[Rfam]
RNA sequence: CUACACAAAUUUUCCGAGCUUGAUUUUCUAAGGCUUAGGCUAUGAAAAUUAAGCCGAUGGGUAUGAGGAGAAAUCCUUAUGCCUCCCGUAUUUGGAAAGGAAAAUGAUAAGUUUAGCC
Numbered sequence: 001c002u003a004c005a006c007a008a009a010u011u012u013u014c015c016g017a018g019c020u021u022g023a024u025u026u027u028c029u030a031a032g033g034c035u036u037a038g039g040c041u042a043u044g045a046a047a048a049u050u051a052a053g054c055c056g057a058u059g060g061g062u063a064u065g066a067g068g069a070g071a072a073a074u075c076c077u078u079a080u081g082c083c084u085c086c087c088g089u090a091u092u093u094g095g096a097a098a099g100g101a102a103a104a105u106g107a108u109a110a111g112u113u114u115a116g117c118c
Stems, first nucleotide, its partner, number of pairs: 003112002010104006018054011032041003059084011085095002
Annotation
A member of the RNA family "Molybdenum/Tungsten riboswitch aptamer (Moco RNA motif)" from Tepidimicrobium xylanilyticum, 118 nucleotides long. Lineage of the source: Bacteria > Bacillota > Tissierellia > Tissierellales > Tepidimicrobium. Its family is annotated with regulation of gene expression, tungstate binding and molybdenum ion binding in the Gene Ontology. The base pairs follow the family's consensus structure, which is taken from published work. A reference for the family is Regulski et al. (2008), "in molybdenum cofactor and tungsten cofactor metabolism", Mol Microbiol. A search with the family's covariance model found it, with a score of 86 bits.